[Rfam]
Nucleotides: 078
Stems, first nucleotide, its partner, number of pairs: 002077005008071001012067002017062001020061003024058003028054003
Number, partner (000 for none) and nucleotide at each position: 001000a002077g003076c004075u005074u006073u007000u008071u009000g010000a011000a012067u013066c014000c015000g016000u017062g018000c019000a020061g021060a022059g023000a024058u025057u026056u027000c028054g029053u030052c031000a032000g033000a034000c035000a036000u037000c038000a039000a040000c041000u042000c043000a044000u045000u046000g047000a048000g049000a050000c051000u052030g053029a054028u055000c056026a057025a058024a059022c060021u061020c062017c063000u064000a065000a066013g067012a068000c069000a070000a071008g072000u073006g074005a075004a076003g077002u078000u